RNA sequence: GCGGGACACCAGAGGGCCAUAGAGCAAAUUACUUCUAGCUGAGUGCUAAAUGAUCCCCUGGUGCCCUGAAA
Number, nucleotide and partner (000 for none) at each position: 001g000002c068003g067004g066005g065006a000007c063008a062009c061010c060011a059012g058013a000014g056015g055016g054017c000018c052019a051020u050021a000022g000023a047024g046025c045026a000027a000028a000029u000030u000031a044032c043033u042034u041035c000036u000037a000038g000039c000040u000041g034042a033043g032044u031045g025046c024047u023048a000049a000050a020051u019052g018053a000054u016055c015056c014057c000058c012059u011060g010061g009062u008063g007064c000065c005066c004067u003068g002069a000070a000071a000
Shown here is a 71-nucleotide RNA from Otolemur garnettii, a member of the family "mir-7177 microRNA precursor family". Taxonomically the source falls in Otolemur (Eukaryota, Opisthokonta, Gnathostomata, Strepsirrhini).